[Rfam]
The family of this 99-nucleotide RNA sequence from Oceanobacillus sp. J11TS1 is "TPP riboswitch aptamer (THI element)".

RNA sequence: CGUAACCACAAGGGGAGCGAAUGCUGAGAGGGGACUUUAAGUUCUUACCCUUUGAACCUGUUAGUUAGUACUAGCGUAGGGAUGUGGUGGUAAAUAGUU
Numbered sequence: 001c002g003u004a005a006c007c008a009c010a011a012g013g014g015g016a017g018c019g020a021a022u023g024c025u026g027a028g029a030g031g032g033g034a035c036u037u038u039a040a041g042u043u044c045u046u047a048c049c050c051u052u053u054g055a056a057c058c059u060g061u062u063a064g065u066u067a068g069u070a071c072u073a074g075c076g077u078a079g080g081g082a083u084g085u086g087g088u089g090g091u092a093a094a095u096a097g098u099u
Stems, first nucleotide, its partner, number of pairs: 006087005011051004016045001017024002032044004057080004061074004
It scores 64 bits against the family's covariance model. The organism belongs to Oceanobacillus, within Bacteria.